[Rfam]
Nucleotides: 090
Base pairs, nucleotide, nucleotide: 002089003088004087005086006085009082010081011079012078013077016076019074020073021072023070024069025068026067027064028063030062031059032058033057034056035055036054040052042051043050044049
Number, partner (000 for none) and nucleotide at each position: 001000g002089g003088g004087g005086g006085g007000a008000g009082g010081u011079c012078g013077g014000a015000u016076c017000c018000u019074g020073g021072g022000c023070u024069g025068u026067g027064u028063c029000c030062c031059c032058a033057g034056c035055g036054c037000c038000c039000u040052g041000u042051g043050c044049u045000u046000c047000c048000g049044g050043g051042c052040c053000u054036g055035c056034g057033c058032u059031g060000u061000u062030g063028g064027a065000a066000u067026c068025a069024u070023g071000c072021u073020c074019u075000a076016g077013c078012c079011g080000g081010g082009c083000a084000g085006c086005c087004c088003c089002c090000a

This 90-nucleotide sequence from Nyctereutes procyonoides belongs to the Rfam family "mir-8799 microRNA precursor family". The base pairs follow the family's consensus structure, which was predicted with RNAalifold.